[Rfam]
RNA sequence: UGUUUAUUCAGAACCGUUCAGAGAGAAAACUCGUUAAAACGGUAGCAACCUAUUUUAGUUAGGUGCUUAAAUCAGGGCAAAUGCUAACAAUGAACA
Numbered sequence: 001u002g003u004u005u006a007u008u009c010a011g012a013a014c015c016g017u018u019c020a021g022a023g024a025g026a027a028a029a030c031u032c033g034u035u036a037a038a039a040c041g042g043u044a045g046c047a048a049c050c051u052a053u054u055u056u057a058g059u060u061a062g063g064u065g066c067u068u069a070a071a072u073c074a075g076g077g078c079a080a081a082u083g084c085u086a087a088c089a090a091u092g093a094a095c096a
Stems, first nucleotide, its partner, number of pairs: 001096008013043005021032003029072001044067004049063002052059002076085003
Annotation:
Rfam assigns this 96-nucleotide RNA to the family "SAM riboswitch aptamer (S box leader)". The match comes from Rfam's covariance-model search (48 bits). Its family is annotated with regulation of gene expression in the Gene Ontology.